MIR9563 microRNA precursor family: a 148-nucleotide sequence from Brassica cretica. It scores 95 bits against the family's covariance model. Gene Ontology terms of the family: RISC complex and miRNA-mediated post-transcriptional gene silencing. NCBI's taxonomy places the organism under Eukaryota, rosids, malvids, Brassicaceae, Brassica.

[Rfam]
RNA sequence: AGAAUAUAAGAACCCGUCUCUUAACUUUUAACUAAAAAAGUUAAGAACCUGUUCUUAAUAUUUAAGAACCUGUCUCUUAACUUUUAACUAUUAAGAACCGGUUCUUACCUUUUUUAGUUAAAAAUUAAGAGACGAAUUCUUAUAUUCC
Numbered sequence: 001a002g003a004a005u006a007u008a009a010g011a012a013c014c015c016g017u018c019u020c021u022u023a024a025c026u027u028u029u030a031a032c033u034a035a036a037a038a039a040g041u042u043a044a045g046a047a048c049c050u051g052u053u054c055u056u057a058a059u060a061u062u063u064a065a066g067a068a069c070c071u072g073u074c075u076c077u078u079a080a081c082u083u084u085u086a087a088c089u090a091u092u093a094a095g096a097a098c099c100g101g102u103u104c105u106u107a108c109c110u111u112u113u114u115u116a117g118u119u120a121a122a123a124a125u126u127a128a129g130a131g132a133c134g135a136a137u138u139c140u141u142a143u144a145u146u147c148c
Stems, first nucleotide, its partner, number of pairs: 002147011015134010026123014042107008